Description: The family of this 543-nucleotide part of an RNA from an uncultured marine eukaryote is "Eukaryotic small subunit ribosomal RNA".
[Rfam]
RNA sequence: UGACGGAAUGACACCACAAGGCGUGGAUGCUGCGGCUUAAUUUGACUCAACACGGGGAAUCUCACCAGGUCAGGACGCAUGUUGGAUUGACAGAUUGAAAGCUCUUUCUUGAUUAUGUGUAUGGUGGUGCAUGGCCGCUCCUGGUUGGUGGAGUGAUUUGUCUGGUUGAUUCCGUUAACGAACGAGAUCUUGGCCCUUCAAUGACAGUUUGAUCGUAUCUGUAAUCCAGUCGACGCGCUUGCGUGCUCGCACUGGACGAGAUCUUGUCUUGUACCCAAGGGGACGAUGCGUGUUGACAAUGCAUGGAAGUGCGAGCCAAUAGCAGGUCUGUGAUGCUCCUAGAUGUCCUGGGCUGCACGCGGCAUACAAUGGUGAAGAAAACGAGUUUGGUUUGUUUGAGCUCCUUGUGCGAAAUCAUUGGGGAAUCUGUGGACACUUCAUCGUAUUGGGGAUCGUUGCUUGCAAUUAUUUGCCUUGAACCAGGAAUGCCUUGUAGACACAACUAGCAAAUUGUAUCGAAUACGUCCCUGCCGUUUGUACACA
Numbered sequence: 001u002g003a004c005g006g007a008a009u010g011a012c013a014c015c016a017c018a019a020g021g022c023g024u025g026g027a028u029g030c031u032g033c034g035g036c037u038u039a040a041u042u043u044g045a046c047u048c049a050a051c052a053c054g055g056g057g058a059a060u061c062u063c064a065c066c067a068g069g070u071c072a073g074g075a076c077g078c079a080u081g082u083u084g085g086a087u088u089g090a091c092a093g094a095u096u097g098a099a100a101g102c103u104c105u106u107u108c109u110u111g112a113u114u115a116u117g118u119g120u121a122u123g124g125u126g127g128u129g130c131a132u133g134g135c136c137g138c139u140c141c142u143g144g145u146u147g148g149u150g151g152a153g154u155g156a157u158u159u160g161u162c163u164g165g166u167u168g169a170u171u172c173c174g175u176u177a178a179c180g181a182a183c184g185a186g187a188u189c190u191u192g193g194c195c196c197u198u199c200a201a202u203g204a205c206a207g208u209u210u211g212a213u214c215g216u217a218u219c220u221g222u223a224a225u226c227c228a229g230u231c232g233a234c235g236c237g238c239u240u241g242c243g244u245g246c247u248c249g250c251a252c253u254g255g256a257c258g259a260g261a262u263c264u265u266g267u268c269u270u271g272u273a274c275c276c277a278a279g280g281g282g283a284c285g286a287u288g289c290g291u292g293u294u295g296a297c298a299a300u301g302c303a304u305g306g307a308a309g310u311g312c313g314a315g316c317c318a319a320u321a322g323c324a325g326g327u328c329u330g331u332g333a334u335g336c337u338c339c340u341a342g343a344u345g346u347c348c349u350g351g352g353c354u355g356c357a358c359g360c361g362g363c364a365u366a367c368a369a370u371g372g373u374g375a376a377g378a379a380a381a382c383g384a385g386u387u388u389g390g391u392u393u394g395u396u397u398g399a400g401c402u403c404c405u406u407g408u409g410c411g412a413a414a415u416c417a418u419u420g421g422g423g424a425a426u427c428u429g430u431g432g433a434c435a436c437u438u439c440a441u442c443g444u445a446u447u448g449g450g451g452a453u454c455g456u457u458g459c460u461u462g463c464a465a466u467u468a469u470u471u472g473c474c475u476u477g478a479a480c481c482a483g484g485a486a487u488g489c490c491u492u493g494u495a496g497a498c499a500c501a502a503c504u505a506g507c508a509a510a511u512u513g514u515a516u517c518g519a520a521u522a523c524g525u526c527c528c529u530g531c532c533g534u535u536u537g538u539a540c541a542c543a
Stems, first nucleotide, its partner, number of pairs: 001541002003538003007535004012530002016525002020490005025367001027365008035356002041056004065351005071345001076119005089108002092105003123339002126337004132333001133331001134327003137323003144183003148179002150159003163174003189315004194281005204272003284306001286304006371442007384428002403422002407418003449480001455474001457472002496517002499514004
Dot-bracket structure: (((((.((((.((..((..((((((.((((((((((....((((........))))........(((((.(....(((((........((.(((........))).))......)))))...((.((((..((((((((....(((.(((((....)))...(((......)))...)).))).....((((.(((((.....(((...............................................................)))....)))))..(.((((((.......)))))).).....)))).....))).)))...).))))))).....).)))))...)).)))))))).)...(((((((......((.................((..(((......)))..))....)).......)))))))......(.....(.((............)).).....).....))))).....((.((((........)))).))......))...)).))))))).))..